[Rfam]
The family of this 30-nucleotide RNA sequence from Marinactinospora thermotolerans is "CRISPR RNA direct repeat element". The organism belongs to Marinactinospora thermotolerans, within Bacteria.
RNA sequence: GUCGCAAUCCCUCCAGGGAUGAGCAGCGAC
Number, nucleotide and partner (000 for none) at each position: 001g030002u029003c028004g027005c026006a000007a020008u019009c018010c017011c016012u000013c000014c000015a000016g011017g010018g009019a008020u007021g000022a000023g000024c000025a000026g005027c004028g003029a002030c001